[Rfam]
RNA: Small nucleolar RNA snoR31/Z110/Z27
Organism: Beta vulgaris
RNA sequence: AACAUCAUGUGAUGAGAUUGGAAAUUAUCUUAGGACACCUUCCAACACAGCAUUGAAAAAUGCUGUGAGUGAGAAAGAAAAUCCUUUCUGAUGAUGUU
Numbered sequence: 001a002a003c004a005u006c007a008u009g010u011g012a013u014g015a016g017a018u019u020g021g022a023a024a025u026u027a028u029c030u031u032a033g034g035a036c037a038c039c040u041u042c043c044a045a046c047a048c049a050g051c052a053u054u055g056a057a058a059a060a061u062g063c064u065g066u067g068a069g070u071g072a073g074a075a076a077g078a079a080a081a082u083c084c085u086u087u088c089u090g091a092u093g094a095u096g097u098u
Base pairs, nucleotide, nucleotide: 001098002097003096004095005094006093007092043050